[Rfam]
RNA sequence: UCGAAGCUCCAUCUAUAAAUGGAUAAAAUUUCGUUUUUAGGUUAGUGUAUAGGAGUUUUUGAAAGUAAAGGGGCAAUGCCGGUUUCUUUAUAUAACAAGAAAUUGGUUAUUGCUCCUUU
Numbered sequence: 001u002c003g004a005a006g007c008u009c010c011a012u013c014u015a016u017a018a019a020u021g022g023a024u025a026a027a028a029u030u031u032c033g034u035u036u037u038u039a040g041g042u043u044a045g046u047g048u049a050u051a052g053g054a055g056u057u058u059u060u061g062a063a064a065g066u067a068a069a070g071g072g073g074c075a076a077u078g079c080c081g082g083u084u085u086c087u088u089u090a091u092a093u094a095a096c097a098a099g100a101a102a103u104u105g106g107u108u109a110u111u112g113c114u115c116c117u118u119u
Stems, first nucleotide, its partner, number of pairs: 008023005067119012081104002084101005
Dot-bracket structure: .......(((((......)))))...........................................((((((((((((..((.(((((........))))).))...))))))))))))
This 119-nucleotide RNA sequence from Sarcobatus vermiculatus belongs to the Rfam family "Plastid-psbA-1 3UTR RNA". The base pairs follow the family's consensus structure, which was predicted with LocARNA. NCBI's taxonomy places the organism under Eukaryota, Spermatophyta, Gunneridae, Sarcobataceae, Sarcobatus. Rfam's curators put it in the seed alignment.